This 103-nucleotide RNA sequence from Sorghum bicolor belongs to the Rfam family "Small nucleolar RNA Z118/Z121/Z120".
Rfam classes the family as a C/D-box small nucleolar RNA.
The source organism's lineage runs through Eukaryota, Streptophyta, Tracheophyta, Panicoideae and Sorghum.
The match comes from Rfam's covariance-model search (71 bits).
RNA sequence: GUUUUGCUAUGAUGACGCCUAUUAGGACGGUAUCUUAAGGGUGUGGCUUUUAAGUGCAGCUCUUGUGAUUAUACCAAAACUGAAUAUGGUUUCUGAGCAAAUU
Dot-bracket structure: (.(((((..............................((((...................))))................................))))).)